[Rfam]
RNA sequence: CGUGACCGUCGCGACUGGCGUUGGGUGGGUCACCACCGGGGAGCGACCACAACGGCUAUCGACCGCACGCCUGGGUCGGGGUU
Numbered sequence: 001c002g003u004g005a006c007c008g009u010c011g012c013g014a015c016u017g018g019c020g021u022u023g024g025g026u027g028g029g030u031c032a033c034c035a036c037c038g039g040g041g042a043g044c045g046a047c048c049a050c051a052a053c054g055g056c057u058a059u060c061g062a063c064c065g066c067a068c069g070c071c072u073g074g075g076u077c078g079g080g081g082u083u
Stems, first nucleotide, its partner, number of pairs: 003052001008047005015040002017071005025036004060078005
RNA: ZMP/ZTP riboswitch aptamer (pfl RNA motif)